[Rfam]
RNA sequence: UUCUUUCAUGGGGGACCAAAUUUGGGUACCACCCCAGUAUUGACUCAUUUAUAACGGCUUAUGUAUUUCGUACAUUACUGCUAGCCAACAUGAAUAUUACCUA
Numbered sequence: 001u002u003c004u005u006u007c008a009u010g011g012g013g014g015a016c017c018a019a020a021u022u023u024g025g026g027u028a029c030c031a032c033c034c035c036a037g038u039a040u041u042g043a044c045u046c047a048u049u050u051a052u053a054a055c056g057g058c059u060u061a062u063g064u065a066u067u068u069c070g071u072a073c074a075u076u077a078c079u080g081c082u083a084g085c086c087a088a089c090a091u092g093a094a095u096a097u098u099a100c101c102u103a
Base pairs, nucleotide, nucleotide: 005094006093007092008091009090010089012086013085017080018079022036024034025033026032027031037055038054040051042049043048061075062074063073064072065071
Mitochondrial DNA control region secondary structure A: a 103-nucleotide RNA sequence from Pongo abelii. Rfam classes the family as an antisense RNA. A reference for the family is Pereira et al. (2008), "Evidence for variable selective pressures at a large secondary structure of the human mitochondrial DNA control region", Mol Biol Evol. Taxonomically the source falls in Pongo (Eukaryota, Opisthokonta, Chordata, Catarrhini).